[Rfam]
RNA sequence: AUGAUGGUUAUAGGAGAGACUGCGUAAUGCAGCGCCGAAGGAGUAAGCACUUUGUCAAACUCUCAGGCAAAAGGACUGUAACCGGACU
Numbered sequence: 001a002u003g004a005u006g007g008u009u010a011u012a013g014g015a016g017a018g019a020c021u022g023c024g025u026a027a028u029g030c031a032g033c034g035c036c037g038a039a040g041g042a043g044u045a046a047g048c049a050c051u052u053u054g055u056c057a058a059a060c061u062c063u064c065a066g067g068c069a070a071a072a073g074g075a076c077u078g079u080a081a082c083c084g085g086a087c088u
Stems, first nucleotide, its partner, number of pairs: 006083008020032004034068003037064002041062003047055002
RNA: Glycine riboswitch aptamer
Organism: Sporomusa malonica